This 97-nucleotide sequence from Blastochloris tepida belongs to the Rfam family "TPP riboswitch aptamer (THI element)".
[Rfam]
RNA sequence: UGAGUGCGCCUGGGGUGCCGCGCCGAUGCGCGGCUGAGAUCACACCCAUCGAACCUGUCUGGGUCAUGCCAGCGAAGGGAGGCGCCGAUGCUAUCAC
Numbered sequence: 001u002g003a004g005u006g007c008g009c010c011u012g013g014g015g016u017g018c019c020g021c022g023c024c025g026a027u028g029c030g031c032g033g034c035u036g037a038g039a040u041c042a043c044a045c046c047c048a049u050c051g052a053a054c055c056u057g058u059c060u061g062g063g064u065c066a067u068g069c070c071a072g073c074g075a076a077g078g079g080a081g082g083c084g085c086c087g088a089u090g091c092u093a094u095c096a097c
Stems, first nucleotide, its partner, number of pairs: 006085005011048004016042001017034005054078003059072004